[Rfam]
RNA sequence: ACCGCCAAGGAUGGCGGUGGUUCUAUGCAGUAACAAGUUUGCCUUGCAAACUUGCAGCUCAACAAUGAACAUGGAGGUUCAUUGUUGAGCGA
Number, nucleotide and partner (000 for none) at each position: 001a018002c017003c016004g015005c014006c013007a000008a000009g000010g000011a000012u000013g006014g005015c004016g003017g002018u001019g000020g000021u000022u000023c000024u000025a000026u000027g000028c000029a000030g000031u000032a000033a000034c054035a053036a052037g051038u050039u049040u048041g047042c046043c000044u000045u000046g042047c041048a040049a039050a038051c037052u036053u035054g034055c000056a000057g090058c089059u088060c087061a086062a085063c084064a083065a082066u081067g080068a079069a078070c077071a000072u000073g000074g000075a000076g000077g070078u069079u068080c067081a066082u065083u064084g063085u062086u061087g060088a059089g058090c057091g000092a000

Shown here is a 92-nucleotide sequence from Treponema vincentii, a member of the family "TD-2 RNA". The family is grouped with related families in Rfam's "TD (Treponema denticola) motifs". A search with the family's covariance model found it, with a score of 68 bits. The organism belongs to Treponema vincentii, within Bacteria. The literature on the family includes a 2007 paper in Nucleic Acids Res by Weinberg et al., "Identification of 22 candidate structured RNAs in bacteria using the CMfinder comparative genomics pipeline". The base pairs follow the family's consensus structure, which is taken from published work. It is annotated as a small RNA.